[Rfam]
RNA sequence: GGGGCGGGCCGUGACUGGCGCGUCUGGUCCUGGUGAUGCCAGGACCCAAAGAUGGGACCGACCAUCGGGGAGCGGCCCGAGCAGCGAGUGUGCCGUGCGCCUGGGCCGUACCG
Numbered sequence: 001g002g003g004g005c006g007g008g009c010c011g012u013g014a015c016u017g018g019c020g021c022g023u024c025u026g027g028u029c030c031u032g033g034u035g036a037u038g039c040c041a042g043g044a045c046c047c048a049a050a051g052a053u054g055g056g057a058c059c060g061a062c063c064a065u066c067g068g069g070g071a072g073c074g075g076c077c078c079g080a081g082c083a084g085c086g087a088g089u090g091u092g093c094c095g096u097g098c099g100c101c102u103g104g105g106c107c108g109u110a111c112c113g
Base pairs, nucleotide, nucleotide: 005079006078007077008076009075010074011073012072015069016068017101018100019099020098021097052065053064054063055062092106093105094104
RNA: ZMP/ZTP riboswitch aptamer (pfl RNA motif)